[Rfam]
RNA sequence: CGAGGCCAUGAUGAAUUAAGAGAUUUGCCUACAUUGUCUGAUUCUCAUUCAUGACAGAGGAAUCUGAAACUAUUCUGAGGCCUUG
Numbered sequence: 001c002g003a004g005g006c007c008a009u010g011a012u013g014a015a016u017u018a019a020g021a022g023a024u025u026u027g028c029c030u031a032c033a034u035u036g037u038c039u040g041a042u043u044c045u046c047a048u049u050c051a052u053g054a055c056a057g058a059g060g061a062a063u064c065u066g067a068a069a070c071u072a073u074u075c076u077g078a079g080g081c082c083u084u085g
Base pairs, nucleotide, nucleotide: 001085002084004082005081006080007079
Rfam assigns this 85-nucleotide RNA sequence from Nyssa sinensis to the family "Small nucleolar RNA SNORD34". The family's consensus secondary structure was predicted with PFOLD. Rfam describes the family as follows. snoRNA U34 is found in intron 5 of the ribosomal protein L13a gene in humans. NCBI's taxonomy places the organism under Eukaryota, Streptophyta, Tracheophyta, asterids, Nyssa.